[Rfam]
RNA sequence: CGGGGAUCGUGGGCAGACUCCCCGCUGCAGACGCCGCACACGCGUCCAAGUUCUGC
Numbered sequence: 001c002g003g004g005g006a007u008c009g010u011g012g013g014c015a016g017a018c019u020c021c022c023c024g025c026u027g028c029a030g031a032c033g034c035c036g037c038a039c040a041c042g043c044g045u046c047c048a049a050g051u052u053c054u055g056c
Base pairs, nucleotide, nucleotide: 001024002023003022004021005020006019013056014055015054016053017052030046031045032044033043034042

The record is a 56-nucleotide RNA sequence from Ramlibacter pinisoli, which matches "chrB-b RNA" in Rfam. The organism belongs to Ramlibacter, within Bacteria. It is annotated as a cis-regulatory element. The match comes from Rfam's covariance-model search (46 bits).